This 127-nucleotide RNA from Brassica oleracea belongs to the Rfam family "MIR9563 microRNA precursor family". It scores 111 bits against the family's covariance model. Rfam 15.1 lists 5,832 matches to the family in 9 species.
[Rfam]
RNA sequence: GGAAUAUAAGAAGCCGUCUCUUAACUUUUAACUAAAAAAACUAAGAACAUGCUCUUAAAUAAGAUAUUUAAGAAUCGAUUCUUAGUUUUUUUUUAAUUUAAAGUUAAGAAACUGUUUCUUAUAUUCC
Numbered sequence: 001g002g003a004a005u006a007u008a009a010g011a012a013g014c015c016g017u018c019u020c021u022u023a024a025c026u027u028u029u030a031a032c033u034a035a036a037a038a039a040a041c042u043a044a045g046a047a048c049a050u051g052c053u054c055u056u057a058a059a060u061a062a063g064a065u066a067u068u069u070a071a072g073a074a075u076c077g078a079u080u081c082u083u084a085g086u087u088u089u090u091u092u093u094u095a096a097u098u099u100a101a102a103g104u105u106a107a108g109a110a111a112c113u114g115u116u117u118c119u120u121a122u123a124u125u126c127c
Stems, first nucleotide, its partner, number of pairs: 001127014016112002019109010030098002033095007041085007